[Rfam]
Shown here is a 106-nucleotide RNA from Monascus purpureus, a member of the family "tRNA". It scores 46 bits against the family's covariance model. Transfer RNA (tRNA) molecules are approximately 80 nucleotides in length. Their secondary structure includes four short double-helical elements and three loops (D, anti-codon, and T loops). Further hydrogen bonds mediate the characteristic L-shaped molecular structure. tRNAs have two regions of fundamental functional importance: the anti-codon, which is responsible for specific mRNA codon recognition, and the 3' end, to which the tRNAs corresponding amino acid is attached (by aminoacyl-tRNA synthetases). tRNAs cope with the degeneracy of the genetic code in two manners: having more than one tRNA (with a specific anti-codon) for a particular amino acid; and 'wobble' base-pairing, i.e. permitting non-standard base-pairing at the 3rd anti-codon position.

RNA sequence: GACACUUUGGCCGAGUGGUUAAGGCGCAGGUCUGCUAUUGGUUCCCGUCUGGGAAUAUAGUGAAUCUGUCCCUUCGGGGGCGUGAGUUCGAAUCUCACAGGUGUCG
Numbered sequence: 001g002a003c004a005c006u007u008u009g010g011c012c013g014a015g016u017g018g019u020u021a022a023g024g025c026g027c028a029g030g031u032c033u034g035c036u037a038u039u040g041g042u043u044c045c046c047g048u049c050u051g052g053g054a055a056u057a058u059a060g061u062g063a064a065u066c067u068g069u070c071c072c073u074u075c076g077g078g079g080g081c082g083u084g085a086g087u088u089c090g091a092a093u094c095u096c097a098c099a100g101g102u103g104u105c106g
Stems, first nucleotide, its partner, number of pairs: 001105007010025003027068005082098005
The base pairs follow the family's consensus structure, which is taken from published work. NCBI's taxonomy places the organism under Eukaryota, Opisthokonta, Fungi, Eurotiomycetidae, Monascus.